[Rfam]
RNA: Small nucleolar RNA SNORD100
RNA sequence: GCUGUUUCGGUGAUGAUAAUUUGGCUCCCUCUACUGAACACCGUGAGGAGAUUGCCUAUGUUACCCAAUUUUUGUCUGAGAUAACAGC
Dot-bracket structure: ((((((............................................................................))))))